Shown here is a 46-nucleotide RNA from Rhizobium oryziradicis, a member of the family "ctRNA". It scores 56 bits against the family's covariance model. It is annotated as an antisense RNA. Rfam describes the family as follows. This family represents a group of ctRNAs (or counter-transcribed RNAs) from p42d and related plasmids. ctRNAs are small, highly structured, antisense sequences which are involved in negative regulation. Members of this family are known to bind to the mRNA of repC causing translational repression. This model contains the predicted stem-loop structure followed by a U-rich tract which is proposed to act as a Rho-independent transcriptional terminator. The organism belongs to Rhizobium, within Bacteria. The base pairs follow the family's consensus structure, which is taken from published work.
RNA sequence: AGAAGGGCUUCCACAACGGAAACGUUUGGAGGCCCUUUUUUUUUAU
Numbered sequence: 001a002g003a004a005g006g007g008c009u010u011c012c013a014c015a016a017c018g019g020a021a022a023c024g025u026u027u028g029g030a031g032g033c034c035c036u037u038u039u040u041u042u043u044u045a046u
Stems, first nucleotide, its partner, number of pairs: 005035008015026004